[Rfam]
RNA sequence: AGGCUAUGCCCAUGUCCGUCGGCGAAGCCGACAGCAUGCCCAGGUAGCCAAAACCUUCAAGGCUACGGCGCGUUGCGACGCGUAGGUCGUCCUUCUUUGCCAAGCCGCUUGCGGCGCUUUUUCCACCCCUUGGGGCAGUGAGUGC
Numbered sequence: 001a002g003g004c005u006a007u008g009c010c011c012a013u014g015u016c017c018g019u020c021g022g023c024g025a026a027g028c029c030g031a032c033a034g035c036a037u038g039c040c041c042a043g044g045u046a047g048c049c050a051a052a053a054c055c056u057u058c059a060a061g062g063c064u065a066c067g068g069c070g071c072g073u074u075g076c077g078a079c080g081c082g083u084a085g086g087u088c089g090u091c092c093u094u095c096u097u098u099g100c101c102a103a104g105c106c107g108c109u110u111g112c113g114g115c116g117c118u119u120u121u122u123c124c125a126c127c128c129c130u131u132g133g134g135g136c137a138g139u140g141a142g143u144g145c
Stems, first nucleotide, its partner, number of pairs: 011038004015033001018032006044066006053087003068083006116145002123138001126135003
RNA: radC RNA
Organism: Aromatoleum tolulyticum